Purine riboswitch aptamer: a 101-nucleotide sequence from Halolactibacillus alkaliphilus.
RNA sequence: AAAUAAAACAAUAUAUUUCGUCGUAUAAUCUUGAGAAUAUGGCUCAUGAGUCUCUACCGACCACCGUAAAUGGUCUGUCUACGCAGAAGUGAAUAAUCAUC
Numbered sequence: 001a002a003a004u005a006a007a008a009c010a011a012u013a014u015a016u017u018u019c020g021u022c023g024u025a026u027a028a029u030c031u032u033g034a035g036a037a038u039a040u041g042g043c044u045c046a047u048g049a050g051u052c053u054c055u056a057c058c059g060a061c062c063a064c065c066g067u068a069a070a071u072g073g074u075c076u077g078u079c080u081a082c083g084c085a086g087a088a089g090u091g092a093a094u095a096a097u098c099a100u101c
Stems, first nucleotide, its partner, number of pairs: 018087002022083004029049002032046004058077001059075005